The family of this 115-nucleotide RNA sequence from Nonomuraea sp. WAC 01424 is "Actinobacteria sRNA Ms_IGR-7". The family has 14 seed sequences and 463 matches in Rfam 15.1. The match comes from Rfam's covariance-model search (45 bits). The pairing is the family consensus, mapped onto this sequence. The source organism's lineage runs through Bacteria, Actinomycetota, Actinomycetes, Streptosporangiaceae and Nonomuraea.
Nucleotides: 115
Stems, first nucleotide, its partner, number of pairs: 002074012015062003019058005026052003031047001033045002102113004
Number, partner (000 for none) and nucleotide at each position: 001000c002074g003073g004072a005071a006070a007069g008068u009067g010066c011065c012064u013063u014000c015062u016061g017060a018000u019058c020057u021056g022055g023054g024000a025000u026052g027051g028050g029000c030000g031047g032000g033045g034044c035000c036000u037000u038000a039000g040000a041000c042000a043000a044034g045033u046000c047031c048000g049000a050028u051027c052026c053000u054023c055022c056021c057020a058019g059000c060017u061016c062015a063013a064012g065011g066010g067009c068008a069007c070006u071005u072004u073003u074002c075000u076000u077000a078000u079000g080000u081000g082000a083000a084000u085000g086000a087000u088000c089000a090000g091000g092000u093000c094000g095000g096000c097000a098000c099000a100000a101000a102113u103112u104111c105110g106000g107000c108000c109000g110105u111104g112103a113102a114000a115000g